[Rfam]
RNA sequence: UUUUUAUACAGAGGCGUGGAGAGAUAGGCUCGACGAACCGCCGGCAACCAUUGGGCAUUCCCAAACGGUGCCAACCGAAGGUCAGCGCAGCUAAGCGCUGACGAUAUAAAAA
Numbered sequence: 001u002u003u004u005u006a007u008a009c010a011g012a013g014g015c016g017u018g019g020a021g022a023g024a025u026a027g028g029c030u031c032g033a034c035g036a037a038c039c040g041c042c043g044g045c046a047a048c049c050a051u052u053g054g055g056c057a058u059u060c061c062c063a064a065a066c067g068g069u070g071c072c073a074a075c076c077g078a079a080g081g082u083c084a085g086c087g088c089a090g091c092u093a094a095g096c097g098c099u100g101a102c103g104a105u106a107u108a109a110a111a112a
Stems, first nucleotide, its partner, number of pairs: 001112008013042004021031003025080001043072004048068002051063001053061001083100006

The family of this 112-nucleotide RNA sequence from Hymenobacter sp. BRD67 is "SAM riboswitch aptamer (S box leader)". Rfam's curators write: The SAM riboswitch is found upstream of a number of genes which code for proteins involved in methionine or cysteine biosynthesis in Gram-positive bacteria. The literature on the family includes a 2016 paper in Nucleic Acids Res by Huang et al., "A critical base pair in k-turns determines the conformational class adopted, and correlates with biological function".